[Rfam]
RNA sequence: GUCGGGAAUAUUGUCCUGUCACAGCAGUACGCCUUAUUCGAGUUACUGGUGUGAUGGGACAUUGUCCUCGGC
Numbered sequence: 001g002u003c004g005g006g007a008a009u010a011u012u013g014u015c016c017u018g019u020c021a022c023a024g025c026a027g028u029a030c031g032c033c034u035u036a037u038u039c040g041a042g043u044u045a046c047u048g049g050u051g052u053g054a055u056g057g058g059a060c061a062u063u064g065u066c067c068u069c070g071g072c
Base pairs, nucleotide, nucleotide: 003070004069005068006067012061013060014059015058016057017056018055022051023050025048026047027046028045029044

The family of this 72-nucleotide RNA sequence from Nasonia vitripennis is "mir-1000 microRNA precursor family". The organism belongs to Nasonia, within Eukaryota. A search with the family's covariance model found it, with a score of 67 bits. Pairs were carried over by alignment from the consensus structure, which was predicted with RNAalifold.